RNA sequence: GGGGGUAUAGCUCAGGGGUAGAGCAUUUGACUGCAGAUCAAGAGGUCCCUGGUUCAAAUCCAGGUGCCCCCU
Numbered sequence: 001g002g003g004g005g006u007a008u009a010g011c012u013c014a015g016g017g018g019u020a021g022a023g024c025a026u027u028u029g030a031c032u033g034c035a036g037a038u039c040a041a042g043a044g045g046u047c048c049c050u051g052g053u054u055c056a057a058a059u060c061c062a063g064g065u066g067c068c069c070c071c072u
Stems, first nucleotide, its partner, number of pairs: 001071007010024004026042005048064005
Dot-bracket structure: (((((((..((((.......)))).(((((.......))))).....(((((.......)))))))))))).

The family of this 72-nucleotide sequence is "tRNA".
About the family: Transfer RNA (tRNA) molecules are approximately 80 nucleotides in length.
The sequence is in the family's curated seed alignment.
It is annotated as a transfer RNA.
The family's consensus secondary structure is taken from published work.